Shown here is a 69-nucleotide RNA from Bombyx mori, a member of the family "mir-3389 microRNA precursor family".
The family's consensus secondary structure was predicted with RNAalifold.

RNA sequence: CCAGUCGUAGCCGAUGUUUCACGAGAGAGGGCCAAGGACCGACCCCUGUGGAACAUCGCACUCGACACC
Numbered sequence: 001c002c003a004g005u006c007g008u009a010g011c012c013g014a015u016g017u018u019u020c021a022c023g024a025g026a027g028a029g030g031g032c033c034a035a036g037g038a039c040c041g042a043c044c045c046c047u048g049u050g051g052a053a054c055a056u057c058g059c060a061c062u063c064g065a066c067a068c069c
Base pairs, nucleotide, nucleotide: 004066005065006064007061008060010059011058013056015055016054017053018052019051020050024049026047027046029045030044031043033041
It scores 77 bits against the family's covariance model.